[Rfam]
RNA: tRNA
Organism: Cohnella rhizosphaerae
RNA sequence: GCGAUCGUGGCGAAGUGGUUAACGCAUCGGUUUGUGGAUCCGACAUUCGGGGGUUCAAUUCCCCUCGAUCGCC
Numbered sequence: 001g002c003g004a005u006c007g008u009g010g011c012g013a014a015g016u017g018g019u020u021a022a023c024g025c026a027u028c029g030g031u032u033u034g035u036g037g038a039u040c041c042g043a044c045a046u047u048c049g050g051g052g053g054u055u056c057a058a059u060u061c062c063c064c065u066c067g068a069u070c071g072c073c
Stems, first nucleotide, its partner, number of pairs: 001072007010025003027043004049065005